[Rfam]
RNA sequence: AAUAGUAGCAGCAUAGUCAGGUGAGAAUCCUGACCGCCGAAGGGGCCAGGUUUCCUCGGCAAUGAUCGUCAGCCGAGGGUUAGUCGGUCCUAAGACGUACCGUAAUUCGAGUACGCCAAAAGGGAAACAGGUUAAUAUUCCUGUACCGUUUAGCAUUAAAACCAACGUCUCAGGGCAGGUUGAGCAGCGUUGUCGCGCUGUCUAAGCAUCGAAACCCGUGGAGAGCCGUAAUGGCGAGAAGCGGGCGAAUAUGUUAUUGCGAAAGUCAACUGCACCCCGGGACCCGUGAAAAGGAAGCUAAACGACCGUACCAAGAUCUGACACUGGUGCCCCUAGCUGAAAAGGCUAAGGCGUGU
Numbered sequence: 001a002a003u004a005g006u007a008g009c010a011g012c013a014u015a016g017u018c019a020g021g022u023g024a025g026a027a028u029c030c031u032g033a034c035c036g037c038c039g040a041a042g043g044g045g046c047c048a049g050g051u052u053u054c055c056u057c058g059g060c061a062a063u064g065a066u067c068g069u070c071a072g073c074c075g076a077g078g079g080u081u082a083g084u085c086g087g088u089c090c091u092a093a094g095a096c097g098u099a100c101c102g103u104a105a106u107u108c109g110a111g112u113a114c115g116c117c118a119a120a121a122g123g124g125a126a127a128c129a130g131g132u133u134a135a136u137a138u139u140c141c142u143g144u145a146c147c148g149u150u151u152a153g154c155a156u157u158a159a160a161a162c163c164a165a166c167g168u169c170u171c172a173g174g175g176c177a178g179g180u181u182g183a184g185c186a187g188c189g190u191u192g193u194c195g196c197g198c199u200g201u202c203u204a205a206g207c208a209u210c211g212a213a214a215c216c217c218g219u220g221g222a223g224a225g226c227c228g229u230a231a232u233g234g235c236g237a238g239a240a241g242c243g244g245g246c247g248a249a250u251a252u253g254u255u256a257u258u259g260c261g262a263a264a265g266u267c268a269a270c271u272g273c274a275c276c277c278c279g280g281g282a283c284c285c286g287u288g289a290a291a292a293g294g295a296a297g298c299u300a301a302a303c304g305a306c307c308g309u310a311c312c313a314a315g316a317u318c319u320g321a322c323a324c325u326g327g328u329g330c331c332c333c334u335a336g337c338u339g340a341a342a343a344g345g346c347u348a349a350g351g352c353g354u355g356u
Stems, first nucleotide, its partner, number of pairs: 016034006035353004043332004049312002054078006063071002085308003089123002094117001096115004101109002127144005147304008162294002167283005173277003178271005184201005206254004215245005225235003260265001318327002334348004